[Rfam]
Nucleotides: 144
Stems, first nucleotide, its partner, number of pairs: 020055002024051001029050003037045002088120001090118001091116003095112005133144004
Number, partner (000 for none) and nucleotide at each position: 001000a002000g003000c004000u005000u006000u007000g008000c009000a010000c011000a012000g013000u014000g015000g016000c017000a018000g019000u020055a021054u022000a023000u024051u025000c026000a027000c028000a029050g030049c031048c032000a033000a034000u035000g036000a037045g038044g039000u040000u041000u042000a043000u044038c045037u046000g047000a048031g049030g050029c051024a052000c053000a054021a055020u056000u057000u058000u059000u060000g061000c062000u063000a064000a065000u066000u067000g068000a069000a070000a071000a072000c073000u074000u075000u076000u077000c078000c079000c080000a081000g082000u083000a084000c085000c086000c087000c088120g089000c090118c091116a092115u093114g094000a095112u096111g097110a098109c099108u100000u101000g102000g103000a104000a105000u106000a107000u108099a109098g110097u111096u112095g113000g114093c115092a116091u117000u118090g119000u120088c121000a122000a123000u124000u125000u126000u127000u128000g129000g130000u131000a132000g133144u134143u135142u136141c137000g138000a139000u140000a141136g142135a143134g144133a